[Rfam]
RNA: ZMP/ZTP riboswitch aptamer (pfl RNA motif)
Organism: Gordonia polyisoprenivorans
RNA sequence: AGGGCAGGUCGUAACUGGCGCUGGGGUGGAGUACCACCGGGGAGCGGCCUCCGGAGUGUGUGUCGUGCGCCUGGGCAUUGACG
Numbered sequence: 001a002g003g004g005c006a007g008g009u010c011g012u013a014a015c016u017g018g019c020g021c022u023g024g025g026g027u028g029g030a031g032u033a034c035c036a037c038c039g040g041g042g043a044g045c046g047g048c049c050u051c052c053g054g055a056g057u058g059u060g061u062g063u064c065g066u067g068c069g070c071c072u073g074g075g076c077a078u079u080g081a082c083g
Stems, first nucleotide, its partner, number of pairs: 004052001006050007015041002017071005026037004060078005